This 113-nucleotide RNA sequence from Rickettsiales endosymbiont of Peranema trichophorum belongs to the Rfam family "TPP riboswitch aptamer (THI element)". A search with the family's covariance model found it, with a score of 65 bits. Rfam describes the family as follows. Vitamin B(1) in its active form thiamin pyrophosphate (TPP) is an essential coenzyme that is synthesised by coupling of pyrimidine and thiazole moieties in bacteria. The previously detected thiamin-regulatory element, thi box was extended, resulting in a new, highly conserved RNA secondary structure, the THI element, which is widely distributed in eubacteria and also occurs in some archaea. Taxonomically the source falls in Rickettsiales (Bacteria, Pseudomonadati, Pseudomonadota, Alphaproteobacteria).
RNA sequence: AUUGCUCACCAGGGGUGCUUUGCUAGUUCACAUCUUGUCCUAUCAAAGCUGAGAAAUACCCUUAGAACCUGCUCUGGUUAAUACCUGCGGAGGGAGCGUGAAGGAUUAUGUAA
Numbered sequence: 001a002u003u004g005c006u007c008a009c010c011a012g013g014g015g016u017g018c019u020u021u022g023c024u025a026g027u028u029c030a031c032a033u034c035u036u037g038u039c040c041u042a043u044c045a046a047a048g049c050u051g052a053g054a055a056a057u058a059c060c061c062u063u064a065g066a067a068c069c070u071g072c073u074c075u076g077g078u079u080a081a082u083a084c085c086u087g088c089g090g091a092g093g094g095a096g097c098g099u100g101a102a103g104g105a106u107u108a109u110g111u112a113a
Stems, first nucleotide, its partner, number of pairs: 006101004011062004016056001017049005068093003074087001076085002